[Rfam]
Rfam assigns this 44-nucleotide sequence from Flavimobilis soli to the family "L31-Actinobacteria ribosomal protein leader". It is annotated as a cis-regulatory leader.
RNA sequence: CUGGUAUCCGGUUCACGGCCGCGGAACGUGGGCGACCCGGGUCC
Numbered sequence: 001c002u003g004g005u006a007u008c009c010g011g012u013u014c015a016c017g018g019c020c021g022c023g024g025a026a027c028g029u030g031g032g033c034g035a036c037c038c039g040g041g042u043c044c
Stems, first nucleotide, its partner, number of pairs: 003044002006042001008040004016034002019031005
Clan: Ribosomal Protein L31 Leader clan.